[Rfam]
The record is a 76-nucleotide RNA from Gallus gallus, which matches "mir-216 microRNA precursor family" in Rfam. The sequence is in the family's curated seed alignment. The family is grouped with related families in Rfam's "mir-216 clan". For this family Rfam cites "Vertebrate microRNA genes" (Lim et al., Science, 2003). Rfam 15.1 lists 1,667 matches to the family in 655 species.

Nucleotides: 076
Stems, first nucleotide, its partner, number of pairs: 003074004009068008020058002023054001027052003031048001
Number, partner (000 for none) and nucleotide at each position: 001000a002000g003074a004073u005072u006071g007000u008000a009068g010067a011066a012065u013064c014063u015062c016061u017000a018000c019000a020058g021057g022000u023054a024000a025000u026000u027052g028051u029050g030000a031048g032000a033000u034000u035000g036000c037000u038000a039000u040000a041000a042000a043000g044000a045000c046000a047000u048031c049000a050029c051028a052027u053000u054023u055000g056000c057021c058020u059000g060000c061016a062015g063014a064013g065012a066011u067010u068009u069000c070000c071006c072005a073004g074003u075000c076000u